[Rfam]
RNA sequence: UUCAGACAUUCUCCAGAGUCUCUGUACUGUCUUGUUGAAUAUUGUUGAAUCUGUAUCUGAUGACUGCUGUUCAAUUCUGC
Numbered sequence: 001u002u003c004a005g006a007c008a009u010u011c012u013c014c015a016g017a018g019u020c021u022c023u024g025u026a027c028u029g030u031c032u033u034g035u036u037g038a039a040u041a042u043u044g045u046u047g048a049a050u051c052u053g054u055a056u057c058u059g060a061u062g063a064c065u066g067c068u069g070u071u072c073a074a075u076u077c078u079g080c
Stems, first nucleotide, its partner, number of pairs: 003079004
This 80-nucleotide RNA from Esox lucius belongs to the Rfam family "Small nucleolar RNA MBII-202".
Rfam classes the family as a C/D-box small nucleolar RNA.
Pairs were carried over by alignment from the consensus structure, which was predicted with PFOLD.
The match comes from Rfam's covariance-model search (42 bits).
The source organism's lineage runs through Eukaryota, Bilateria, Vertebrata, Esociformes and Esox.